RNA sequence: UGACCACUCUUUACCGAGUUAUGGCCAUACGGACAGCCGGGUCAGAUGCCGA
Numbered sequence: 001u002g003a004c005c006a007c008u009c010u011u012u013a014c015c016g017a018g019u020u021a022u023g024g025c026c027a028u029a030c031g032g033a034c035a036g037c038c039g040g041g042u043c044a045g046a047u048g049c050c051g052a
Stems, first nucleotide, its partner, number of pairs: 001044005006019004
RNA: Streptococcus sRNA SpF59 (ldcC RNA)